[Rfam]
Background:
A member of the RNA family "Alphaproteobacteria transfer-messenger RNA" from Nitratireductor indicus, 369 nucleotides long. Clan: tRNA clan. The base pairs follow the family's consensus structure, which is taken from published work. A reference for the family is Williams and Bartel (1996), "Phylogenetic analysis of tmRNA secondary structure", RNA. About the family: Bacterial tmRNA, also known as 10Sa RNA or SsrA, is named for its dual tRNA and mRNA-like properties. Its role is to liberate the mRNA from a stalled ribosome. To accomplish this part of the tmRNA is used as a reading frame that ends in a translation stop signal. The broken mRNA is replaced in the ribosome by the tmRNA and translation of the tmRNA leads to addition of a proteolysis tag to the incomplete protein enabling recognition by a protease. Recently a number of permuted tmRNA genes have been found encoded in two parts. tmRNAs have been identified in eubacteria and some chloroplasts but are absent from archaeal and eukaryote nuclear genomes.
RNA sequence: CCCCUUUCCAUGACGUUUGAGCCUCACUAUAUUCGCCUCGUCGGCUUGACUGACUAUGGCGAUAAACUGCCGGUGAAAUAAACCAUUCGGACCCGGGGGCAGUGCCCGGCGCCUCCACCAGAAACCGCCGAAAGGCGAUGAUCGCAGGGCGGUUUCUGCUGGGGGCGAAACAGGAUCGACGAGGGUGUAAAGAUCGGACUUUCGCUCGGCAUGGUACCACCGUUAUCGGGCUAAACUCUAUAGUUGCCAACGACAACUAUGCGGAGGCACGUCUCGCUGCUUAAUGCGGCGCGAUAGCUUCAAAUCAAGCCUUAGGCCGUCGCAGGUCUAAGCGGGGUUCGGAGGCACCUGGCAACAGAAGCCUCCACU
Number, nucleotide and partner (000 for none) at each position: 001c000002c000003c000004c000005u000006u000007u000008c000009c000010a000011u000012g000013a000014c000015g000016u000017u000018u000019g000020a000021g000022c000023c000024u000025c000026a000027c000028u000029a000030u000031a000032u000033u000034c000035g000036c000037c000038u000039c000040g054041u053042c052043g051044g050045c000046u000047u000048g000049a000050c044051u043052g042053a041054c040055u000056a000057u000058g206059g205060c204061g203062a202063u000064a000065a000066a000067c000068u000069g000070c197071c196072g195073g194074u193075g000076a000077a000078a000079u000080a000081a000082a000083c185084c184085a000086u000087u182088c181089g180090g000091a000092c000093c109094c108095g107096g106097g105098g000099g000100c000101a000102g000103u000104g000105c097106c096107c095108g094109g093110c167111g166112c165113c164114u163115c162116c161117a000118c000119c000120a000121g000122a000123a000124a000125c000126c000127g000128c000129c000130g000131a000132a000133a000134g000135g000136c000137g000138a000139u000140g000141a000142u000143c000144g000145c000146a000147g000148g000149g000150c000151g000152g000153u000154u000155u000156c000157u000158g000159c000160u000161g116162g115163g114164g113165g112166c111167g110168a000169a000170a000171c000172a000173g000174g000175a000176u000177c000178g000179a000180c089181g088182a087183g000184g084185g083186u000187g000188u000189a000190a000191a000192g000193a074194u073195c072196g071197g070198a000199c000200u000201u000202u062203c061204g060205c059206u058207c222208g221209g220210c000211a000212u233213g232214g231215u000216a000217c229218c228219a000220c209221c208222g207223u000224u000225a000226u000227c000228g218229g217230g000231c214232u213233a212234a000235a000236c000237u000238c000239u000240a000241u000242a000243g000244u000245u000246g000247c000248c000249a000250a000251c000252g000253a000254c000255a000256a000257c000258u000259a000260u000261g000262c000263g000264g000265a000266g000267g000268c000269a000270c000271g000272u000273c000274u000275c000276g000277c000278u000279g000280c000281u000282u000283a000284a000285u000286g000287c000288g000289g000290c000291g000292c000293g000294a000295u000296a000297g000298c000299u000300u000301c000302a000303a000304a000305u000306c000307a000308a000309g000310c000311c000312u000313u000314a000315g000316g000317c000318c000319g000320u000321c000322g000323c000324a000325g000326g000327u000328c000329u000330a000331a000332g000333c000334g000335g350336g349337g348338u347339u000340c000341g366342g365343a364344g363345g362346c361347a338348c337349c336350u335351g000352g000353c000354a000355a000356c000357a000358g000359a000360a000361g346362c345363c344364u343365c342366c341367a000368c000369u000